[Rfam]
RNA sequence: CCCCUAUUGACGGAUUGAACGGCAUCCAGUACAAAAACUGGAUAGGGG
Numbered sequence: 001c002c003c004c005u006a007u008u009g010a011c012g013g014a015u016u017g018a019a020c021g022g023c024a025u026c027c028a029g030u031a032c033a034a035a036a037a038c039u040g041g042a043u044a045g046g047g048g
Stems, first nucleotide, its partner, number of pairs: 001048007011021002017032001026041005
The record is a 48-nucleotide RNA sequence, which matches "DUF2693-FD RNA" in Rfam.
The sequence is in the family's curated seed alignment.
The family's consensus secondary structure is taken from published work.
Rfam's curators write: DUF2693-FD RNA is a non-coding RNA (ncRNA) recognised in Bacteroides by a bioinformatic analisis by Zasha Weinberg. No recognised genes.
Rfam classes the family as a small RNA.